[Rfam]
Record summary:
The family of this 61-nucleotide RNA sequence from Actinopolymorpha pittospori is "Transposase-2 RNA". The family has 151 seed sequences and 214 matches in Rfam 15.1. The base pairs follow the family's consensus structure, which is taken from published work. It scores 44 bits against the family's covariance model.
RNA sequence: GAAACGUCAACCAGGCACGGCAGUAGCCGGUCAGACCCGGACUCCUUCGCCAGAAGGUACA
Numbered sequence: 001g002a003a004a005c006g007u008c009a010a011c012c013a014g015g016c017a018c019g020g021c022a023g024u025a026g027c028c029g030g031u032c033a034g035a036c037c038c039g040g041a042c043u044c045c046u047u048c049g050c051c052a053g054a055a056g057g058u059a060c061a
Stems, first nucleotide, its partner, number of pairs: 011040002014037002018029004044057005
Dot-bracket structure: ..........((.((..((((....))))......)).))...(((((....)))))....